Shown here is a 74-nucleotide sequence from Oryza sativa, a member of the family "MIR814 microRNA precursor family". Its family is annotated with RISC complex and miRNA-mediated post-transcriptional gene silencing in the Gene Ontology. Taxonomically the source falls in Oryza (Eukaryota, Euphyllophyta, Petrosaviidae, commelinids). The family's consensus secondary structure was predicted with RNAalifold.
[Rfam]
RNA sequence: ACCGGACGAGACACUUCAUAGUACAACGAAUCUGGACAUGAAGAUUCGUUGUACUAUAAAGUGUCUCGUCUGGU
Numbered sequence: 001a002c003c004g005g006a007c008g009a010g011a012c013a014c015u016u017c018a019u020a021g022u023a024c025a026a027c028g029a030a031u032c033u034g035g036a037c038a039u040g041a042a043g044a045u046u047c048g049u050u051g052u053a054c055u056a057u058a059a060a061g062u063g064u065c066u067c068g069u070c071u072g073g074u
Stems, first nucleotide, its partner, number of pairs: 001074008010065007018057014